[Rfam]
Shown here is a 137-nucleotide RNA sequence from Lynx canadensis, a member of the family "U4 spliceosomal RNA". The family's consensus secondary structure is taken from published work. U4 small nuclear RNA (U4 snRNA) is a component of the major U2-dependent spliceosome. Clan: U4 clan. By type it is a spliceosomal small nuclear RNA. On this family, see Zwieb, Nucleic Acids Res 1997: "The uRNA database".

RNA sequence: AGCUUUGUACAGUGGCAGUAUCAUAGCCAAUGAGGUUUAUCCGAGGUGCGAUUAUUGCUAAUAGAAGAAUUAACAUCAGUACUUUUGAAACUCUUCAAAAAAAUUGAAGAGGAAACAUUUCCUAUCUCAUUAUUGAG
Numbered sequence: 001a002g003c004u005u006u007g008u009a010c011a012g013u014g015g016c017a018g019u020a021u022c023a024u025a026g027c028c029a030a031u032g033a034g035g036u037u038u039a040u041c042c043g044a045g046g047u048g049c050g051a052u053u054a055u056u057g058c059u060a061a062u063a064g065a066a067g068a069a070u071u072a073a074c075a076u077c078a079g080u081a082c083u084u085u086u087g088a089a090a091c092u093c094u095u096c097a098a099a100a101a102a103a104u105u106g107a108a109g110a111g112g113a114a115a116c117a118u119u120u121c122c123u124a125u126c127u128c129a130u131u132a133u134u135g136a137g
Stems, first nucleotide, its partner, number of pairs: 020052003024048001026047003034042002085113002093109006126137004